[Rfam]
RNA sequence: GAUAUGGCUUCAAAGGAGCGACCCGAUCCGAAGGAAAGAGUCGCGAGGCUCCGGUACGAGGAUCGGUGACCAGAGUCAUAUCAUACGUUUUGAAGAACGG
Numbered sequence: 001g002a003u004a005u006g007g008c009u010u011c012a013a014a015g016g017a018g019c020g021a022c023c024c025g026a027u028c029c030g031a032a033g034g035a036a037a038g039a040g041u042c043g044c045g046a047g048g049c050u051c052c053g054g055u056a057c058g059a060g061g062a063u064c065g066g067u068g069a070c071c072a073g074a075g076u077c078a079u080a081u082c083a084u085a086c087g088u089u090u091u092g093a094a095g096a097a098c099g100g
Stems, first nucleotide, its partner, number of pairs: 001082010015071002023066007033057001038051005086099003